[Rfam]
RNA: epsC RNA
RNA sequence: UGGUGAUAUCUCCUAACCACUAUCAAAGGAGAUACUCGGCCGUACUGUGGGUGAAAAACACCUUAGACACGCUUGUUGUCAAGAGUACGGUGUGAGGACGGGUUAGAUGCCCA
Numbered sequence: 001u002g003g004u005g006a007u008a009u010c011u012c013c014u015a016a017c018c019a020c021u022a023u024c025a026a027a028g029g030a031g032a033u034a035c036u037c038g039g040c041c042g043u044a045c046u047g048u049g050g051g052u053g054a055a056a057a058a059c060a061c062c063u064u065a066g067a068c069a070c071g072c073u074u075g076u077u078g079u080c081a082a083g084a085g086u087a088c089g090g091u092g093u094g095a096g097g098a099c100g101g102g103u104u105a106g107a108u109g110c111c112c113a
Stems, first nucleotide, its partner, number of pairs: 001019004007034007035096004039091008049063005066080004100112004